Background: This 192-nucleotide RNA from Zea mays belongs to the Rfam family "Small nucleolar RNA Z112".
RNA sequence: GCCCCCGUGAAGAUCACAAGACCUACCGAUAGGAAGUGCCGUUUGACACUGUAAGCAGCAGCUGCUGCACUCAGCUGCAGGUGUUCCAUCUCUCGACCAUAACCUUUGUGGUUUGGUCAGGCUGGAUCUCCCAUCUGCAUCUGCUCUGUGUUUCAGCUGUGGUGUGUGAUUAAGAUCGGGUCUCUGAGGGAC
Numbered sequence: 001g002c003c004c005c006c007g008u009g010a011a012g013a014u015c016a017c018a019a020g021a022c023c024u025a026c027c028g029a030u031a032g033g034a035a036g037u038g039c040c041g042u043u044u045g046a047c048a049c050u051g052u053a054a055g056c057a058g059c060a061g062c063u064g065c066u067g068c069a070c071u072c073a074g075c076u077g078c079a080g081g082u083g084u085u086c087c088a089u090c091u092c093u094c095g096a097c098c099a100u101a102a103c104c105u106u107u108g109u110g111g112u113u114u115g116g117u118c119a120g121g122c123u124g125g126a127u128c129u130c131c132c133a134u135c136u137g138c139a140u141c142u143g144c145u146c147u148g149u150g151u152u153u154c155a156g157c158u159g160u161g162g163u164g165u166g167u168g169a170u171u172a173a174g175a176u177c178g179g180g181u182c183u184c185u186g187a188g189g190g191a192c
Base pairs, nucleotide, nucleotide: 001192003190004189005188076139077138078137079136080135081134082133083132085126086125087124088123090121091120095118096117097116098115099114101113102112103111104110

The literature on the family includes a 2002 paper in Nucleic Acids Res by Liang et al., "A novel gene organization: intronic snoRNA gene clusters from Oryza sativa". Rfam classes the family as a C/D-box small nucleolar RNA. Rfam links the family to the GO terms nucleolus and RNA processing.